[Rfam]
Nucleotides: 055
Stems, first nucleotide, its partner, number of pairs: 002051020
Number, partner (000 for none) and nucleotide at each position: 001000u002051u003050g004049a005048g006047a007046a008045c009044c010043u011042u012041u013040u014039g015038a016037a017036u018035c019034a020033c021032u022000c023000a024000a025000g026000u027000a028000a029000u030000g031000g032021a033020g034019u035018g036017a037016u038015u039014c040013a041012a042011a043010a044009g045008g046007u047006u048005c049004u050003c051002g052000c053000a054000a055000a
The family of this 55-nucleotide RNA is "Plastid-ccsA-ndhD-1 3UTR RNA". Plastid-ccsA-ndhD-1 is a non-coding RNA (ncRNA) recognised in plastids. It was found in the three prime untranslated region (3UTR) of ccsA and ndhD genes, its 3UTR location suggests a role in transcript maturation. The family is grouped with related families in Rfam's "Plastid-ccsA_ndhD 3UTR RNA clan". By type it is a cis-regulatory element.